[Rfam]
RNA sequence: CUGACAGAAGAGAGUGAGCACACACUGACAAUUGUAUGAGAGCAUACAUUCUUGACGGUGCGUGCUCACUUCUCUUUCUGUCAG
Numbered sequence: 001c002u003g004a005c006a007g008a009a010g011a012g013a014g015u016g017a018g019c020a021c022a023c024a025c026u027g028a029c030a031a032u033u034g035u036a037u038g039a040g041a042g043c044a045u046a047c048a049u050u051c052u053u054g055a056c057g058g059u060g061c062g063u064g065c066u067c068a069c070u071u072c073u074c075u076u077u078c079u080g081u082c083a084g
Stems, first nucleotide, its partner, number of pairs: 001084009010074003013070009023060003
RNA: mir-156 microRNA precursor family